[Rfam]
RNA: Small nucleolar RNA Z247
RNA sequence: UAAUGCGAUGCUGAAGAACUAACUGCUUUUAUUUUGAAUGGAUUAGAUGAUGAUUAUGAUUCUGUUGUAUCGGCUCUAGCAGCCAAAACUGAACCUAUUACUCUGUCAGAGACAUAUGCACAACUUCUGAAUUUUGAGA
Numbered sequence: 001u002a003a004u005g006c007g008a009u010g011c012u013g014a015a016g017a018a019c020u021a022a023c024u025g026c027u028u029u030u031a032u033u034u035u036g037a038a039u040g041g042a043u044u045a046g047a048u049g050a051u052g053a054u055u056a057u058g059a060u061u062c063u064g065u066u067g068u069a070u071c072g073g074c075u076c077u078a079g080c081a082g083c084c085a086a087a088a089c090u091g092a093a094c095c096u097a098u099u100a101c102u103c104u105g106u107c108a109g110a111g112a113c114a115u116a117u118g119c120a121c122a123a124c125u126u127c128u129g130a131a132u133u134u135u136g137a138g139a
Stems, first nucleotide, its partner, number of pairs: 004138001006136003089109004